The family of this 77-nucleotide RNA sequence from [Phormidium ambiguum] IAM M-71 is "CyVA-1 RNA". Taxonomically the source falls in Floridanema (Bacteria, Bacillati, Aerosakkonematales, Aerosakkonemataceae). By type it is a small RNA. The family's consensus secondary structure is taken from published work. Cyanobacteria, Acidobacteria (1 example), Verrucomicrobia (1 example).
RNA sequence: ACACCGGAUGGGAGUUUUGUCGCUGUGUCCCAUUAUUGUGCGUCGAAGAAGAGCGACGGCAGAUGUACAAACGGUGA
Numbered sequence: 001a002c003a004c005c006g007g008a009u010g011g012g013a014g015u016u017u018u019g020u021c022g023c024u025g026u027g028u029c030c031c032a033u034u035a036u037u038g039u040g041c042g043u044c045g046a047a048g049a050a051g052a053g054c055g056a057c058g059g060c061a062g063a064u065g066u067a068c069a070a071a072c073g074g075u076g077a
Stems, first nucleotide, its partner, number of pairs: 002076005009032004037069008
A search with the family's covariance model found it, with a score of 78 bits.